[Rfam]
RNA sequence: GGCCUCCCUCUGUGGGGCGAUCGAUCAUGGGGCCUCCCCCCACUGAUCGCCUCGCAGAGGGUAGCC
Dot-bracket structure: (((..((((((((((((((((((.(...(((....)))...).))))))))))))))))))..)))
The record is a 66-nucleotide sequence from Myotis brandtii, which matches "mir-9242 microRNA precursor family" in Rfam.
The family's consensus secondary structure was predicted with RNAalifold.
Rfam 15.1 lists 940 matches to the family in 18 species.
Rfam links the family to the GO terms miRNA-mediated post-transcriptional gene silencing and RISC complex.
The source organism's lineage runs through Eukaryota, Boreoeutheria, Laurasiatheria, Chiroptera and Myotis.